Nucleotides: 116
Stems, first nucleotide, its partner, number of pairs: 001049004011042006018035005024083004064111003088099004
Number, partner (000 for none) and nucleotide at each position: 001049a002048a003047g004046c005000g006000u007000u008000g009000a010000a011042g012041u013040a014039a015038g016037g017000g018035a019034g020033u021032g022031u023000g024083c025082c026081g027080a028000u029000a030000g031022g032021c033020a034019u035018u036000g037016c038015c039014u040013u041012a042011u043000g044000g045000a046004g047003c048002u049001u050000u051000c052000a053000g054000g055000a056000g057000g058000g059000g060000u061000u062000g063000u064111g065110u066109a067000g068000c069000g070000a071000u072000a073000c074000c075000u076000c077000a078000a079000a080027u081026c082025g083024g084000c085000u086000c087000a088099g089098g090097c091096u092000g093000c094000a095000a096091a097090g098089c099088u100000g101000a102000a103000a104000g105000a106000a107000a108000a109066u110065a111064c112000u113000c114000c115000g116000a

Shown here is a 116-nucleotide sequence from Hungatella hathewayi, a member of the family "drum RNA".
The source organism's lineage runs through Bacteria, Bacillati, Clostridia, Lachnospiraceae and Hungatella hathewayi.
Rfam's curators write: Firmicutes, Bacteroidetes (1 example), Proteobacteria (2 examples), Spirochaetes (2 examples).
By type it is a small RNA.